[Rfam]
RNA: c-di-GMP-I riboswitch aptamer
Organism: Halalkalibacillus sediminis
RNA sequence: AAAAUAAAAGGGCAAACCUUACGAAAGUAAGAGACGCAAAGCCACGGGCCUAAGGAAUUUCUAUGGUAGCCGGGUUGCAAUC
Numbered sequence: 001a002a003a004a005u006a007a008a009a010g011g012g013c014a015a016a017c018c019u020u021a022c023g024a025a026a027g028u029a030a031g032a033g034a035c036g037c038a039a040a041g042c043c044a045c046g047g048g049c050c051u052a053a054g055g056a057a058u059u060u061c062u063a064u065g066g067u068a069g070c071c072g073g074g075u076u077g078c079a080a081u082c
Base pairs, nucleotide, nucleotide: 012037013036018031019030020029021028022027040076041075042074043073045072046071047070048067049066050065055061056060